[Rfam]
RNA sequence: GGAAGUUGCGCUUUUUUAGUAUUUCUCUAGUAGGUUUCCUCAAGGAGAAAGCCUCC
Numbered sequence: 001g002g003a004a005g006u007u008g009c010g011c012u013u014u015u016u017u018a019g020u021a022u023u024u025c026u027c028u029a030g031u032a033g034g035u036u037u038c039c040u041c042a043a044g045g046a047g048a049a050a051g052c053c054u055c056c
Base pairs, nucleotide, nucleotide: 033053034052035051036050037049039047040046041045